[Rfam]
RNA sequence: UCCUCGGUAGCUCAGUCGGUAGAGCAUCGGACUGUUAAUCCGCUGGUCAGUGGUUCGAGUCCACUCCGGGGAG
Numbered sequence: 001u002c003c004u005c006g007g008u009a010g011c012u013c014a015g016u017c018g019g020u021a022g023a024g025c026a027u028c029g030g031a032c033u034g035u036u037a038a039u040c041c042g043c044u045g046g047u048c049a050g051u052g053g054u055u056c057g058a059g060u061c062c063a064c065u066c067c068g069g070g071g072a073g
Stems, first nucleotide, its partner, number of pairs: 001072007010025004028042004049065005